This 86-nucleotide RNA from Oceanobacillus profundus belongs to the Rfam family "BsrC". The base pairs follow the family's consensus structure, which was predicted with CMfinder.

RNA sequence: UCUAACUUAAGCAACGUAGCCCUACCUGCUCUACGUCCUUGCGACCCCUAAGUCGCGCCAGUGUGAAUAAGCAUCUUCAAAAACAU
Numbered sequence: 001u002c003u004a005a006c007u008u009a010a011g012c013a014a015c016g017u018a019g020c021c022c023u024a025c026c027u028g029c030u031c032u033a034c035g036u037c038c039u040u041g042c043g044a045c046c047c048c049u050a051a052g053u054c055g056c057g058c059c060a061g062u063g064u065g066a067a068u069a070a071g072c073a074u075c076u077u078c079a080a081a082a083a084c085a086u
Stems, first nucleotide, its partner, number of pairs: 034065002038061002040057006
On this family, see Saito et al., Gene 2008: "Novel small RNA-encoding genes in the intergenic regions of Bacillus subtilis".
It scores 62 bits against the family's covariance model.
NCBI's taxonomy places the organism under Bacteria, Bacillati, Bacillota, Bacillaceae, Oceanobacillus.